Rfam assigns this 76-nucleotide RNA sequence from Hucho hucho to the family "Small nucleolar RNA SNORD121A".
On this family, see Yang et al., Nucleic Acids Res 2006: "snoSeeker: an advanced computational package for screening of guide and orphan snoRNA genes in the human genome".
A search with the family's covariance model found it, with a score of 44 bits.
The family's consensus secondary structure was predicted with WAR.
The organism belongs to Hucho, within Eukaryota.

RNA sequence: AUCUGGAGAUAAUGAUGGUUCCAAGCACAUAUCUGAUUAUUAUGUUGAAUACCUCAAUGACUGAAUCUCCUAUGGU
Number, nucleotide and partner (000 for none) at each position: 001a076002u075003c074004u072005g070006g000007a068008g067009a066010u065011a000012a000013u000014g000015a000016u000017g000018g000019u000020u000021c000022c000023a000024a000025g000026c000027a000028c000029a000030u000031a000032u000033c000034u000035g000036a000037u000038u000039a000040u000041u000042a000043u000044g000045u000046u000047g000048a000049a000050u000051a000052c000053c000054u000055c000056a000057a000058u000059g000060a000061c000062u000063g000064a000065a010066u009067c008068u007069c000070c005071u000072a004073u000074g003075g002076u001